[Rfam]
RNA sequence: UGAAACACCUAUCAUAGGGGUAGUUCCCCAUCCAUGAGUUACUUUACCAUAUUCUGAAUUA
Numbered sequence: 001u002g003a004a005a006c007a008c009c010u011a012u013c014a015u016a017g018g019g020g021u022a023g024u025u026c027c028c029c030a031u032c033c034a035u036g037a038g039u040u041a042c043u044u045u046a047c048c049a050u051a052u053u054c055u056g057a058a059u060u061a
Base pairs, nucleotide, nucleotide: 017045018044019043020042021041022040023039024038025037026036